[Rfam]
RNA sequence: AGCCUGAUCGGAAACCAGGCAAACAAGAAGGAG
Numbered sequence: 001a002g003c004c005u006g007a008u009c010g011g012a013a014a015c016c017a018g019g020c021a022a023a024c025a026a027g028a029a030g031g032a033g
Stems, first nucleotide, its partner, number of pairs: 002020005008014001
Notes: The record is a 33-nucleotide RNA, which matches "L31-Coriobacteria ribosomal protein leader" in Rfam. Pairs were carried over by alignment from the consensus structure, which is taken from published work. Rfam classes the family as a cis-regulatory leader. Its Rfam clan is "Ribosomal Protein L31 Leader clan".